[Rfam]
RNA sequence: GGUAGUGGGCAGUGCGAGCGGGUUUCGUGUGAAGUCGGUCAGGUUAGAAAUAAAGCAGCCGUAGCAUUGAGUAUUCGGGUUGCGCUGUCCACUGGGUUC
Dot-bracket structure: ...((((((((((((...(((((.(.((((.....((((....(((....)))....))))..)))).)...))))).)...)))))))))))......
RNA: Bacterial small signal recognition particle RNA